[Rfam]
RNA sequence: GGUCGAUGAUGACAAAGAAGUUUUCUGAGGGCACAGGGGAAUUGCACCCAUUACCCUCUUGGCUCCCAGCAUUCCCUGUUCUAUCAUGCCAUAGUCAAGCAGUGAUUGAGGAAGAGAUUGCUGACAGUUUGGGAUUAAUUUAGUUCCAGUUCUCCACAGUGAAGGGAGUUGUGGUACCAAAUGUAAUCCAACAGACCUGGUUAAAAGGAGCUCAUGGUGGUGGUGUGUCUUCAUUUGCUGUGCAUGAUCAAAGGUUUUCAAGCUGAGACC
Numbered sequence: 001g002g003u004c005g006a007u008g009a010u011g012a013c014a015a016a017g018a019a020g021u022u023u024u025c026u027g028a029g030g031g032c033a034c035a036g037g038g039g040a041a042u043u044g045c046a047c048c049c050a051u052u053a054c055c056c057u058c059u060u061g062g063c064u065c066c067c068a069g070c071a072u073u074c075c076c077u078g079u080u081c082u083a084u085c086a087u088g089c090c091a092u093a094g095u096c097a098a099g100c101a102g103u104g105a106u107u108g109a110g111g112a113a114g115a116g117a118u119u120g121c122u123g124a125c126a127g128u129u130u131g132g133g134a135u136u137a138a139u140u141u142a143g144u145u146c147c148a149g150u151u152c153u154c155c156a157c158a159g160u161g162a163a164g165g166g167a168g169u170u171g172u173g174g175u176a177c178c179a180a181a182u183g184u185a186a187u188c189c190a191a192c193a194g195a196c197c198u199g200g201u202u203a204a205a206a207g208g209a210g211c212u213c214a215u216g217g218u219g220g221u222g223g224u225g226u227g228u229c230u231u232c233a234u235u236u237g238c239u240g241u242g243c244a245u246g247a248u249c250a251a252a253g254g255u256u257u258u259c260a261a262g263c264u265g266a267g268a269c270c
Base pairs, nucleotide, nucleotide: 001270002269003268004267036249037248045225046224047223049222050221051220052219063210064209065208066207067123068122069121070120071119073117080109081108083106084105085104086103087102089099131189133188134187135186136185137184146174147173148172152168153167154166155165
A member of the RNA family "Small Cajal body specific RNA 6" from Sapayoa aenigma, 270 nucleotides long. The family's consensus secondary structure is taken from published work. A search with the family's covariance model found it, with a score of 88 bits. By type it is a small Cajal body RNA.